Description: This 92-nucleotide sequence from Lachnospiraceae bacterium XPB1003 belongs to the Rfam family "c-di-GMP-I riboswitch aptamer". Gene Ontology term of the family: cyclic-di-GMP binding. Lineage of the source: Bacteria > Bacillota > Clostridia > Lachnospirales > Lachnospiraceae. Rfam's curators write: GEMM was predicted in a large-scale screen for bacterial structured RNA regulatory elements.
RNA sequence: AAAUUUAAUCGGCAAAACUGUCAAAAGGCAGUGACGCAAAGCUCUUGAGUCUACGGAUAUACUUUUACUUCUAUGAUAGUCAGGCUGCAGAA
Numbered sequence: 001a002a003a004u005u006u007a008a009u010c011g012g013c014a015a016a017a018c019u020g021u022c023a024a025a026a027g028g029c030a031g032u033g034a035c036g037c038a039a040a041g042c043u044c045u046u047g048a049g050u051c052u053a054c055g056g057a058u059a060u061a062c063u064u065u066u067a068c069u070u071c072u073a074u075g076a077u078a079g080u081c082a083g084g085c086u087g088c089a090g091a092a
Base pairs, nucleotide, nucleotide: 012037013036017032018031019030020029021028022027040086041085042084043083046082047081048080049077050076051075056071057070